[Rfam]
RNA sequence: AGAAUGAUAGCUGUAACGGAGUGCCGCGCGCACGGGCUGACACCUAUC
Numbered sequence: 001a002g003a004a005u006g007a008u009a010g011c012u013g014u015a016a017c018g019g020a021g022u023g024c025c026g027c028g029c030g031c032a033c034g035g036g037c038u039g040a041c042a043c044c045u046a047u048c
Stems, first nucleotide, its partner, number of pairs: 008039005021033004